[Rfam]
RNA sequence: GGCGCAUUUCGCCCGUGCGGAGCUCGACCGUCGGUUCAAGCCCUGAUCGUCUUCAUCGACGAUCACCGCGAGCGCAACGGGUCGAGCCGGGCCGCGACGCCGGCUCUUGCGCGGAAAGAUCCGGCGCGUGUUCGCCCCG
Dot-bracket structure: ................((((.......))))..............................................((((......((.(((((..............................))).)).))).)))

ALIL pseudoknot: a 139-nucleotide RNA from Roseiarcus fermentans. It scores 58 bits against the family's covariance model.